[Rfam]
RNA sequence: GGGGCUGAUUUUGGUUUCGACUUCGUAUAGUGAGCCAGGGGAAGCGUGCCGGUGCAGGCUGAGGACCACCGUAAGCGUCGCAGCAAACUGAUAAGCGCCGAGAACACUCAGCGCGACUACGCCCUCGCUGCCUAAGCAAGCGACCGCGUGUCUGUCAGACCGGGUUUGUCUCUGACCCGGACCCUGGCAUCGACUAAGAGGCUUGCUGCUCAGCCGCGUCAGCGGGGCUGAGCGGGACACCUUACCGCUGACUGGGCCCAUCAUCCGGGACGAGUUCGUCCGAGCCGGAGGGUCAAGCAGAGAUCAUGCGCGAACUGCGCACGGAGAAGCCCUGGCGAGUUAACGGAGGACCCGGGUUCAAUUCCCGGCAGCUCCACCG
Number, nucleotide and partner (000 for none) at each position: 001g375002g374003g373004g372005c371006u370007g369008a000009u000010u000011u000012u000013g000014g000015u000016u000017u000018c000019g000020a000021c348022u347023u346024c345025g344026u343027a000028u000029a340030g000031u000032g000033a000034g336035c335036c334037a333038g332039g331040g330041g000042a000043a000044g000045c323046g322047u321048g320049c319050c071051g070052g069053u068054g067055c000056a000057g000058g084059c083060u082061g081062a000063g079064g000065a000066c000067c054068a053069c052070c051071g050072u000073a000074a000075g000076c000077g000078u000079c063080g000081c061082a060083g059084c058085a000086a000087a000088c000089u000090g000091a000092u000093a000094a000095g000096c000097g000098c000099c000100g000101a000102g000103a000104a000105c000106a000107c000108u000109c000110a000111g000112c000113g000114c000115g000116a000117c000118u000119a000120c000121g000122c000123c000124c000125u146126c000127g144128c000129u142130g141131c140132c000133u000134a000135a000136g000137c000138a000139a000140g131141c130142g129143a000144c127145c000146g125147c000148g000149u000150g000151u000152c000153u189154g188155u187156c186157a185158g184159a000160c180161c179162g178163g177164g176165u175166u174167u000168g202169u201170c200171u199172c000173u198174g166175a165176c164177c163178c162179g161180g160181a000182c000183c000184c158185u157186g156187g155188c154189a153190u000191c000192g000193a000194c000195u000196a000197a000198g173199a171200g170201g169202c168203u000204u000205g000206c235207u234208g233209c232210u231211c230212a229213g228214c227215c000216g000217c000218g252219u251220c250221a249222g248223c247224g000225g000226g000227g214228c213229u212230g211231a210232g209233c208234g207235g206236g000237a000238c000239a000240c000241c000242u000243u000244a000245c000246c000247g223248c222249u221250g220251a219252c218253u000254g000255g294256g293257c292258c291259c290260a000261u288262c287263a000264u000265c000266c000267g000268g000269g000270a000271c282272g281273a000274g315275u314276u313277c312278g309279u308280c000281c272282g271283a000284g000285c000286c000287g262288g261289a000290g259291g258292g257293u256294c255295a000296a000297g000298c000299a000300g000301a000302g000303a000304u000305c000306a000307u000308g279309c278310g000311c000312g277313a276314a275315c274316u000317g000318c000319g049320c048321a047322c046323g045324g000325a000326g000327a000328a000329g000330c040331c039332c038333u037334g036335g035336c034337g000338a000339g000340u029341u000342a000343a026344c025345g024346g023347a022348g021349g000350a000351c000352c368353c367354g366355g365356g364357u000358u000359c000360a000361a000362u000363u000364c356365c355366c354367g353368g352369c007370a006371g005372c004373u003374c002375c001376a000377c000378c000379g000

This 379-nucleotide RNA sequence from Corynebacterium testudinoris belongs to the Rfam family "transfer-messenger RNA". The organism belongs to Corynebacterium, within Bacteria. Bacterial tmRNA, also known as 10Sa RNA or SsrA, is named for its dual tRNA and mRNA-like properties. The literature on the family includes a 2010 paper in RNA Biol by Mao et al., "Variations on the tmRNA gene". By type it is a non-coding RNA gene.